A member of the RNA family "Bacterial large subunit ribosomal RNA" from Candidatus Saccharibacteria bacterium RAAC3_TM7_1, 600 nucleotides of a longer RNA.
[Rfam]
RNA sequence: CCUUGACGUAUAUCACCGAUGAAGGACGUGGAAGACUGCGAUAAGUCUCGGGUAGCUGUCAACAAGCUUUGAUCCGGGAAUUUCCGAAUGGGGAAACCUAGUGCGAGUUAUGUCGCAUUGUCUGCUUCUGAAUAUAUAGGAAGUAUGAACGGGAACCAACUGAACUGAAACAUCUUAGUAGGUUGAGGAAGAGAAAGUAAAUAACGAUACUCGGAGUAGUGGCGAGCGAAACGGGUAGAGCCCAAACCUUACAAGUUUUUGUCUGUUCGCAGGCAAUAACGGCUGAUAGGCCAAUGCUUAUAAGGGGUUGUGAUAUUACAUAUGACCAAGUCAGAGAAUUAAACCUCGGUUUAGGUAUCUGAUUUGCGAAGCCCGGCUAUCACCGAGGCUAUAAGGUAAAAAAUCGGCGUGGUUAGCAGAAUAACUUGAAUGGUUAACCAAAGGACGUGAAAGUCGUGUAUGUGAAAACGACGCUGACCUUAUGUGUGUUUUAUCGAGUAGGGCGGGGCACGAGAAACCCUGUCUGAAUCCGGCUGGACCACCAGCCAAGGCUAAAUAUGAUAUACGAUCGAUAGUGAACAAGUACCGCGAGGGAAAGGU
Number, nucleotide and partner (000 for none) at each position: 001c599002c598003u000004u000005g570006a569007c567008g566009u565010a564011u563012a562013u561014c560015a559016c152017c151018g000019a000020u000021g000022a000023a000024g085025g084026a083027c040028g039029u038030g000031g000032a000033a000034g000035a000036c000037u000038g029039c028040g027041a000042u000043a000044a000045g000046u079047c078048u077049c076050g075051g074052g073053u000054a000055g067056c066057u065058g000059u000060c000061a000062a000063c000064a000065a057066g056067c055068u000069u000070u000071g000072a000073u052074c051075c050076g049077g048078g047079a046080a000081u000082u000083u026084c025085c024086g000087a000088a000089u000090g099091g098092g097093g000094a000095a000096a000097c092098c091099u090100a119101g118102u117103g116104c115105g114106a113107g000108u000109u000110a000111u000112g000113u106114c105115g104116c103117a102118u101119u100120g000121u148122c147123u145124g144125c143126u142127u141128c140129u139130g000131a000132a000133u000134a000135u000136a000137u000138a000139g129140g128141a127142a126143g125144u124145a123146u000147g122148a121149a000150c000151g017152g016153g000154a000155a000156c187157c185158a184159a183160c182161u181162g000163a000164a000165c000166u000167g174168a173169a000170a000171c000172a000173u168174c167175u000176u000177a000178g000179u000180a000181g161182g160183u159184u158185g157186a000187g156188g000189a000190a000191g000192a000193g000194a000195a000196a000197g205198u204199a000200a000201a000202u000203a000204a198205c197206g000207a000208u556209a236210c235211u234212c233213g232214g000215a000216g000217u000218a000219g227220u226221g000222g000223c000224g000225a000226g220227c219228g000229a000230a000231a000232c213233g212234g211235g210236u209237a000238g000239a553240g552241c551242c550243c000244a000245a000246a000247c305248c304249u303250u302251a301252c000253a299254a298255g297256u296257u000258u000259u000260u000261g000262u000263c000264u000265g000266u000267u000268c000269g000270c000271a000272g000273g000274c000275a000276a000277u000278a000279a000280c000281g000282g000283c000284u000285g000286a000287u000288a000289g000290g000291c000292c000293a000294a000295u000296g256297c255298u254299u253300a000301u251302a250303a249304g248305g247306g000307g000308u000309u000310g000311u000312g495313a494314u493315a000316u000317u488318a487319c486320a485321u000322a000323u000324g000325a000326c000327c000328a000329a000330g000331u000332c000333a000334g000335a000336g000337a000338a000339u000340u000341a000342a000343a000344c000345c000346u000347c000348g000349g000350u000351u000352u000353a000354g000355g000356u000357a000358u000359c000360u000361g000362a000363u000364u000365u000366g000367c000368g000369a000370a000371g000372c000373c000374c000375g000376g000377c000378u000379a000380u000381c000382a000383c000384c000385g000386a000387g000388g000389c000390u000391a000392u000393a000394a000395g000396g000397u000398a000399a000400a000401a000402a000403a000404u477405c476406g475407g474408c473409g472410u471411g000412g469413u468414u467415a000416g463417c462418a461419g000420a000421a000422u436423a435424a434425c433426u432427u000428g000429a000430a000431u000432g426433g425434u424435u423436a422437a000438c000439c443440a000441a000442a000443g439444g000445a457446c456447g455448u000449g000450a000451a000452a000453g000454u000455c447456g446457u445458g000459u000460a000461u418462g417463u416464g000465a000466a000467a414468a413469c412470g000471a410472c409473g408474c407475u406476g405477a404478c000479c000480u000481u000482a000483u000484g000485u320486g319487u318488g317489u000490u000491u000492u000493a314494u313495c312496g000497a000498g000499u000500a000501g525502g524503g523504c522505g521506g520507g519508g518509c000510a000511c000512g000513a000514g000515a000516a000517a000518c508519c507520c506521u505522g504523u503524c502525u501526g000527a000528a000529u000530c000531c000532g547533g546534c545535u544536g543537g000538a000539c000540c000541a000542c000543c536544a535545g534546c533547c532548a000549a000550g242551g241552c240553u239554a000555a000556a208557u000558a000559u015560g014561a013562u012563a011564u010565a009566c008567g007568a000569u006570c005571g000572a000573u000574a000575g000576u000577g000578a000579a000580c000581a000582a000583g000584u000585a000586c593587c592588g000589c000590g000591a000592g587593g586594g000595a000596a000597a000598g002599g001600u000
Taxonomically the source falls in Candidatus Saccharimonadota (Bacteria, Bacteria candidate phyla).